[Rfam]
Notes:
U8 small nucleolar RNA: a 128-nucleotide RNA from Nomascus leucogenys. The organism belongs to Nomascus, within Eukaryota. On this family, see Peculis, Mol Cell Biol 1997: "The sequence of the 5' end of the U8 small nucleolar RNA is critical for 5.8S and 28S rRNA maturation".
RNA sequence: UUGUCAGGUGGGAUAAUCCUUACCUCUGUUUGGAGGACUGUAUUAGGACAUGAUGAUUGGAGUCACGUGAUAUGAUUAAUGUCUGCUUCAUAAUCAGGUCUCACACACCCUGAUUGCUCCUAUCUGAU
Numbered sequence: 001u002u003g004u005c006a007g008g009u010g011g012g013a014u015a016a017u018c019c020u021u022a023c024c025u026c027u028g029u030u031u032g033g034a035g036g037a038c039u040g041u042a043u044u045a046g047g048a049c050a051u052g053a054u055g056a057u058u059g060g061a062g063u064c065a066c067g068u069g070a071u072a073u074g075a076u077u078a079a080u081g082u083c084u085g086c087u088u089c090a091u092a093a094u095c096a097g098g099u100c101u102c103a104c105a106c107a108c109c110c111u112g113a114u115u116g117c118u119c120c121u122a123u124c125u126g127a128u
Stems, first nucleotide, its partner, number of pairs: 025040001026033002067086002070082003073078001091116008